[Rfam]
RNA sequence: AUAACACGAGAGUCGAAAAGACACUCGGAGCGCGGUCUAGUCUCGGGAGGACGUGGUUUUCGGCGCAAGUUCGUCUUGCUGCCCCGGACAAUGUAUCCGGCGGAAAAUCCAGACCUGCAAUUUUAAAUGCAAGACGAAAGUCUUGCAUUUUUUU
Numbered sequence: 001a002u003a004a005c006a007c008g009a010g011a012g013u014c015g016a017a018a019a020g021a022c023a024c025u026c027g028g029a030g031c032g033c034g035g036u037c038u039a040g041u042c043u044c045g046g047g048a049g050g051a052c053g054u055g056g057u058u059u060u061c062g063g064c065g066c067a068a069g070u071u072c073g074u075c076u077u078g079c080u081g082c083c084c085c086g087g088a089c090a091a092u093g094u095a096u097c098c099g100g101c102g103g104a105a106a107a108u109c110c111a112g113a114c115c116u117g118c119a120a121u122u123u124u125a126a127a128u129g130c131a132a133g134a135c136g137a138a139a140g141u142c143u144u145g146c147a148u149u150u151u152u153u154u
Base pairs, nucleotide, nucleotide: 001153003151008026009025010024012022013021031117032116034114040052041051042050043049055110056109058107059106062083063082064081065079066078067077068076069075084100085099086098087097088096128147129146130145131144132143133142134141135140

Rfam assigns this 154-nucleotide RNA sequence from Aureimonas sp. Leaf460 to the family "Alphaproteobacterial sRNA ar9". The match comes from Rfam's covariance-model search (59 bits). By type it is a small RNA.